[Rfam]
Nucleotides: 169
Stems, first nucleotide, its partner, number of pairs: 003154003011023001026148005035085004086134003095108003112128004
Number, partner (000 for none) and nucleotide at each position: 001000g002000u003154c004153g005152c006000g007000c008000a009000a010000g011023c012000g013000c014000c015000g016000u017000u018000g019000g020000c021000a022000g023011g024000a025000g026148c027147g028146g029145g030144g031000g032000a033000a034000c035085c036084a037083a038082g039000g040000u041000a042000g043000g044000c045000g046000c047000c048000g049000g050000g051000a052000a053000a054000g055000g056000c057000c058000g059000u060000u061000g062000a063000g064000a065000g066000a067000c068000g069000g070000c071000c072000c073000g074000c075000g076000u077000a078000c079000c080000g081000g082038c083037u084036u085035g086134g087133g088132g089000u090000g091000a092000a093000g094000a095108c096107g097106c098000g099000c100000a101000a102000c103000u104000g105000c106097g107096c108095g109000a110000c111000c112128g113127g114126g115125c116000a117000a118000c119000u120000c121000a122000u123000c124000c125115g126114c127113c128112c129000g130000a131000a132088c133087c134086c135000g136000a137000c138000a139000g140000c141000u142000c143000a144030c145029c146028u147027c148026g149000a150000a151000g152005g153004c154003g155000u156000c157000g158000g159000u160000g161000a162000g163000g164000a165000g166000a167000a168000a169000c
Shown here is a 169-nucleotide RNA sequence from Streptomyces sp. Ag109_G2-6, a member of the family "c-di-AMP riboswitch aptamer (ydaO/yuaA leader)". A search with the family's covariance model found it, with a score of 61 bits. Rfam links the family to the GO terms regulation of gene expression and cyclic-di-AMP binding.